The family of this 220-nucleotide sequence from Jeotgalibacillus alimentarius is "Group II catalytic intron D1-D4-3".
Its family is annotated with Group II intron splicing in the Gene Ontology.

[Rfam]
RNA sequence: AUUCUUGUGAAAGGUUGUCUGAAGGAGAUGCGGAAAAUCGAGAGACCCGUAGGCGAAUAGAUAGACCCUAAUGCAAUAAGUGUGAAGCACGGCGGCGGGAUAAGUUGGUGACUCUUCGAAAAGUGAGGAAACCCACUAACAGGCAUUUUCUUUAGAAGUCAGAUCGAGGGAAUGUGACUUAUUUCGUGAUGGUGCAGGGUAUGUCUAGAAGGGAAAUGUG
Numbered sequence: 001a002u003u004c005u006u007g008u009g010a011a012a013g014g015u016u017g018u019c020u021g022a023a024g025g026a027g028a029u030g031c032g033g034a035a036a037a038u039c040g041a042g043a044g045a046c047c048c049g050u051a052g053g054c055g056a057a058u059a060g061a062u063a064g065a066c067c068c069u070a071a072u073g074c075a076a077u078a079a080g081u082g083u084g085a086a087g088c089a090c091g092g093c094g095g096c097g098g099g100a101u102a103a104g105u106u107g108g109u110g111a112c113u114c115u116u117c118g119a120a121a122a123g124u125g126a127g128g129a130a131a132c133c134c135a136c137u138a139a140c141a142g143g144c145a146u147u148u149u150c151u152u153u154a155g156a157a158g159u160c161a162g163a164u165c166g167a168g169g170g171a172a173u174g175u176g177a178c179u180u181a182u183u184u185c186g187u188g189a190u191g192g193u194g195c196a197g198g199g200u201a202u203g204u205c206u207a208g209a210a211g212g213g214a215a216a217u218g219u220g
Base pairs, nucleotide, nucleotide: 001016003014004013005012006011046220048218049217050216054212058207059206060205061204062203064202065200066199067198068197069196087195088194089193090192095187096186097185099183100182101181102180103179104178105177107133108132109131112127113126114125